[Rfam]
RNA sequence: CAGAGUAGAUAGGAAGCAUUAAGUGUUAAGAAAUGGGUUGUUGUUCUUAAACGAAGCAUAUCGCUAUGAUUUUCUGUCGCAACCGCUG
Numbered sequence: 001c002a003g004a005g006u007a008g009a010u011a012g013g014a015a016g017c018a019u020u021a022a023g024u025g026u027u028a029a030g031a032a033a034u035g036g037g038u039u040g041u042u043g044u045u046c047u048u049a050a051a052c053g054a055a056g057c058a059u060a061u062c063g064c065u066a067u068g069a070u071u072u073u074c075u076g077u078c079g080c081a082a083c084c085g086c087u088g
Stems, first nucleotide, its partner, number of pairs: 001088003008078009017068003023052002026050007036084005055065003
Dot-bracket structure: (((....((((((((((((...((.(((((((...[[[[[...)))))))))..(((.....)))))).))))))))).]]]]].)))
The family of this 88-nucleotide sequence is "THF (Tetrahydrofolate) riboswitch aptamer". Rfam 15.1 lists 747 matches to the family in 747 species. Gene Ontology term of the family: tetrahydrofolate metabolic process. The sequence is in the family's curated seed alignment.